[Rfam]
RNA sequence: UUGCCGGCUAACGGCAGGGUCUGAAGGAAGCCAUAGGAAGUAAGAUGUCCAUAGCGUUAGUGAACCUGAUUCGGCAGGUUAGGGGGGUAAGCGUGCAUAAUCUCGCAAAGCCCAAUACUUAGUCAGCCCUAACAUGUGAUUGAGGAUGGCAUAUCUUACAGGGAGUC
Numbered sequence: 001u002u003g004c005c006g007g008c009u010a011a012c013g014g015c016a017g018g019g020u021c022u023g024a025a026g027g028a029a030g031c032c033a034u035a036g037g038a039a040g041u042a043a044g045a046u047g048u049c050c051a052u053a054g055c056g057u058u059a060g061u062g063a064a065c066c067u068g069a070u071u072c073g074g075c076a077g078g079u080u081a082g083g084g085g086g087g088u089a090a091g092c093g094u095g096c097a098u099a100a101u102c103u104c105g106c107a108a109a110g111c112c113c114a115a116u117a118c119u120u121a122g123u124c125a126g127c128c129c130u131a132a133c134a135u136g137u138g139a140u141u142g143a144g145g146a147u148g149g150c151a152u153a154u155c156u157u158a159c160a161g162g163g164a165g166u167c
Base pairs, nucleotide, nucleotide: 001017002016003015004014005013042157043156044155045154046153047152049149050148051147052146065145066144067143069141074137075136076135078133079132080131081130082129083128084127085113086112087111088110091106092105093104
A member of the RNA family "Group II catalytic intron D1-D4-3" from Oligella urethralis, 167 nucleotides long. From the family's description: Group II introns are found in rRNA, tRNA and mRNA of organelles in fungi, plants and protists, and also in mRNA in bacteria.